[Rfam]
RNA sequence: AUAUUUGGUAGAGGCGCAUUUUUUAUCAGUAUACUGUAGGAUAUGUCAGGCAUAGUCGAUUACAGUAGAAAGGAAAAGAUGCCGAAGUUCUUAUAACCUGAACAAUAAGGGCUGGGCAUAUAGUGAAUAACUAUAUGACUGUCAUCAAUACAAUGAUGGAGUGCUACCUAAAGA
Numbered sequence: 001a002u003a004u005u006u007g008g009u010a011g012a013g014g015c016g017c018a019u020u021u022u023u024u025a026u027c028a029g030u031a032u033a034c035u036g037u038a039g040g041a042u043a044u045g046u047c048a049g050g051c052a053u054a055g056u057c058g059a060u061u062a063c064a065g066u067a068g069a070a071a072g073g074a075a076a077a078g079a080u081g082c083c084g085a086a087g088u089u090c091u092u093a094u095a096a097c098c099u100g101a102a103c104a105a106u107a108a109g110g111g112c113u114g115g116g117c118a119u120a121u122a123g124u125g126a127a128u129a130a131c132u133a134u135a136u137g138a139c140u141g142u143c144a145u146c147a148a149u150a151c152a153a154u155g156a157u158g159g160a161g162u163g164c165u166a167c168c169u170a171a172a173g174a
Stems, first nucleotide, its partner, number of pairs: 007168005016082009032067008086113009114140002117137008142159006